RNA sequence: CGUCCGGGACGACCCGGGCGCGCAAUCCUGGCGGGGACGGCCCCG
Numbered sequence: 001c002g003u004c005c006g007g008g009a010c011g012a013c014c015c016g017g018g019c020g021c022g023c024a025a026u027c028c029u030g031g032c033g034g035g036g037a038c039g040g041c042c043c044c045g
Base pairs, nucleotide, nucleotide: 001020002019003018004017005016006015007014008013032045033044034043035042036041
This 45-nucleotide sequence from Microbacterium protaetiae belongs to the Rfam family "Guanidine-II riboswitch aptamer (mini-ykkC)". Lineage of the source: Bacteria > Bacillati > Actinomycetota > Actinomycetes > Microbacterium. From the family's description: Simpler in structure and has fewer highly conserved nucleotide positions than the ykkC-yxkD leader. The family's consensus secondary structure is taken from published work. On this family, see Weinberg et al., Nucleic Acids Res 2007: "Identification of 22 candidate structured RNAs in bacteria using the CMfinder comparative genomics pipeline".